[Rfam]
RNA sequence: AAACCCGCGAAGGGAUGUCUGGAGGAAGCCCAAGCGCAAAGGUGCGAGCCGACGGACAGAAACCGCAUAGAAGGCUCAGUCCCUGGGUGAGUCAGCACGAGGUGACGAAACCCAUCAGGGCAAGACGCUCGGCACGUCGUUCUCGCCUGCUGCGCACUCGAACCCAUGGAG
Numbered sequence: 001a002a003a004c005c006c007g008c009g010a011a012g013g014g015a016u017g018u019c020u021g022g023a024g025g026a027a028g029c030c031c032a033a034g035c036g037c038a039a040a041g042g043u044g045c046g047a048g049c050c051g052a053c054g055g056a057c058a059g060a061a062a063c064c065g066c067a068u069a070g071a072a073g074g075c076u077c078a079g080u081c082c083c084u085g086g087g088u089g090a091g092u093c094a095g096c097a098c099g100a101g102g103u104g105a106c107g108a109a110a111c112c113c114a115u116c117a118g119g120g121c122a123a124g125a126c127g128c129u130c131g132g133c134a135c136g137u138c139g140u141u142c143u144c145g146c147c148u149g150c151u152g153c154g155c156a157c158u159c160g161a162a163c164c165c166a167u168g169g170a171g
Base pairs, nucleotide, nucleotide: 001016004014005013006012030169031168032167036164041158042157043156044155045154046153047151048150049149051147065146066145074140075139079135080134082132083131085113086112087111088110091106092105093104094103
Dot-bracket structure: (..(((.....))).).............(((...(....(((((((((.(.............((.......((...((.((.((((..((((........))))...)))).................)).))...))....))).))).)))))).....)..)))..